[Rfam]
Nucleotides: 065
Stems, first nucleotide, its partner, number of pairs: 011045004023037005052064002055061001
Number, partner (000 for none) and nucleotide at each position: 001000a002000a003000a004000u005000a006000a007000g008000g009000a010000a011045c012044u013043a014042c015000u016000a017000a018000a019000a020000c021000c022000g023037c024036a025035c026034a027033c028000g029000u030000c031000c032000u033027g034026u035025g036024u037023g038000c039000a040000a041000c042014g043013u044012a045011g046000a047000a048000g049000c050000c051000a052064c053063c054000a055061c056000a057000u058000c059000c060000u061055g062000c063053g064052g065000a

Overview: Rfam assigns this 65-nucleotide sequence from Alteribacillus bidgolensis to the family "Bacillaceae-1 RNA". A search with the family's covariance model found it, with a score of 48 bits.